[Rfam]
Nucleotides: 068
Base pairs, nucleotide, nucleotide: 001059002058003057004056
Number, partner (000 for none) and nucleotide at each position: 001059g002058a003057g004056g005000u006000a007000c008000g009000a010000g011000g012000a013000a014000a015000c016000u017000g018000u019000c020000u021000g022000a023000u024000a025000g026000u027000c028000a029000c030000u031000g032000a033000a034000g035000a036000c037000u038000g039000a040000u041000u042000a043000g044000a045000u046000c047000c048000a049000a050000c051000u052000c053000u054000g055000a056004u057003c058002u059001c060000a061000g062000c063000a064000a065000a066000g067000c068000c
Rfam assigns this 68-nucleotide sequence from Gorilla gorilla to the family "Small nucleolar RNA SNORD19". The family's RNA type in Rfam is C/D-box small nucleolar RNA. Pairs were carried over by alignment from the consensus structure. Its family is annotated with nucleolus and RNA processing in the Gene Ontology. The organism belongs to Gorilla gorilla, within Eukaryota.